[Rfam]
RNA: tRNA
RNA sequence: GGGUCUUUAGCUCAGUUGGUUAGAGCAUCCGGCUCAUAACCGGACGGUCCCGGGUUCGAGUCCCUGAAGACCCA
Numbered sequence: 001g002g003g004u005c006u007u008u009a010g011c012u013c014a015g016u017u018g019g020u021u022a023g024a025g026c027a028u029c030c031g032g033c034u035c036a037u038a039a040c041c042g043g044a045c046g047g048u049c050c051c052g053g054g055u056u057c058g059a060g061u062c063c064c065u066g067a068a069g070a071c072c073c074a
Base pairs, nucleotide, nucleotide: 001073002072003071004070005069006068007067010026011025012024013023028044029043030042031041032040050066052064053063054062